Record summary:
This 65-nucleotide sequence belongs to the Rfam family "DUF3800-VIII RNA".
RNA sequence: AUAGCCCUGUAUUUAUCGAAGGGUUACGUUUACGUGACUUAUUGAUGUAGGUAAAACGGGGCUUU
Numbered sequence: 001a002u003a004g005c006c007c008u009g010u011a012u013u014u015a016u017c018g019a020a021g022g023g024u025u026a027c028g029u030u031u032a033c034g035u036g037a038c039u040u041a042u043u044g045a046u047g048u049a050g051g052u053a054a055a056a057c058g059g060g061g062c063u064u065u
Base pairs, nucleotide, nucleotide: 001065003063004062005061006060007059008058009057010056012055013054014053015052016051017050021040022039023038024037025036026035027034028033
Dot-bracket structure: (.((((((((.((((((...((((((((....)))))))).........)))))))))))))).)